The family of this 356-nucleotide part of an RNA from Peptococcaceae bacterium SCADC1_2_3 is "Bacterial small subunit ribosomal RNA". Clan: SSU clan. Its family is annotated with structural constituent of ribosome and ribosome in the Gene Ontology.
RNA sequence: GGCGUAAAGGGCGUGUAGGCGGCCUGUGUAGUCAAGUGGUGAAAACCCGGGGCUUAACUUCGGGAUGGCCCUUGAAACCAACAGGCUUGAGGACAGGAGAGGGGAGUGGAAUUUCCGGUGUAGCGGUGAAAUGCGUAGAUACCGGAAGGAACACCAGUGGCGAAGGCGGCUCCCUGGACUGGUCCUGACGCUGAGGCGCGAAAGCGUGGGGAGCAAACAGGAUUAGAUACCCUGGUAGUCCACGCCGUAAACGAUGGGUGCUAGGUGUUGGGGGUAUCGACCCCUCCAGUGCCGCAGUUAACACAAUAAGCACCCCGCCUGGGGAGUACGGCCGCAAGGUUGAAACUCAAAGGAAU
Numbered sequence: 001g002g003c004g005u006a007a008a009g010g011g012c013g014u015g016u017a018g019g020c021g022g023c024c025u026g027u028g029u030a031g032u033c034a035a036g037u038g039g040u041g042a043a044a045a046c047c048c049g050g051g052g053c054u055u056a057a058c059u060u061c062g063g064g065a066u067g068g069c070c071c072u073u074g075a076a077a078c079c080a081a082c083a084g085g086c087u088u089g090a091g092g093a094c095a096g097g098a099g100a101g102g103g104g105a106g107u108g109g110a111a112u113u114u115c116c117g118g119u120g121u122a123g124c125g126g127u128g129a130a131a132u133g134c135g136u137a138g139a140u141a142c143c144g145g146a147a148g149g150a151a152c153a154c155c156a157g158u159g160g161c162g163a164a165g166g167c168g169g170c171u172c173c174c175u176g177g178a179c180u181g182g183u184c185c186u187g188a189c190g191c192u193g194a195g196g197c198g199c200g201a202a203a204g205c206g207u208g209g210g211g212a213g214c215a216a217a218c219a220g221g222a223u224u225a226g227a228u229a230c231c232c233u234g235g236u237a238g239u240c241c242a243c244g245c246c247g248u249a250a251a252c253g254a255u256g257g258g259u260g261c262u263a264g265g266u267g268u269u270g271g272g273g274g275u276a277u278c279g280a281c282c283c284c285u286c287c288a289g290u291g292c293c294g295c296a297g298u299u300a301a302c303a304c305a306a307u308a309a310g311c312a313c314c315c316c317g318c319c320u321g322g323g324g325a326g327u328a329c330g331g332c333c334g335c336a337a338g339g340u341u342g343a344a345a346c347u348c349a350a351a352g353g354a355a356u
Stems, first nucleotide, its partner, number of pairs: 001319003009316001011199004016193001018192003022086006031078001032075005038070003046064007090186003094181003101175007108152001112148008123134003160167002204245006213239002218234004256315006264293011297304002321348003330341004